[Rfam]
RNA sequence: AGGUCAUUUCAAAGAGGGCUUGUGGGGCUAUGAAAUCUGGAGCUCAUAAUGCUAUGACCAAAGAUUGACGUUCUCCAUCGUCACUAAGUAACACUGUGUUUUCCUGAGGAGGUAGAAAA
Numbered sequence: 001a002g003g004u005c006a007u008u009u010c011a012a013a014g015a016g017g018g019c020u021u022g023u024g025g026g027g028c029u030a031u032g033a034a035a036u037c038u039g040g041a042g043c044u045c046a047u048a049a050u051g052c053u054a055u056g057a058c059c060a061a062a063g064a065u066u067g068a069c070g071u072u073c074u075c076c077a078u079c080g081u082c083a084c085u086a087a088g089u090a091a092c093a094c095u096g097u098g099u100u101u102u103c104c105u106g107a108g109g110a111g112g113u114a115g116a117a118a119a
Stems, first nucleotide, its partner, number of pairs: 002059006014047001016045006023039001026037002072112005080104001083097002085090001
Source information:
A member of the RNA family "Small nucleolar RNA SNORA25" from Hipposideros armiger, 119 nucleotides long. The family has 30 seed sequences and 1,129 matches in Rfam 15.1. It is annotated as an H/ACA-box small nucleolar RNA. Rfam's curators write: ACA25 is a member of the H/ACA class of snoRNA that guide the sites of modification of uridines to pseudouridines. Its family is annotated with nucleolus and RNA processing in the Gene Ontology.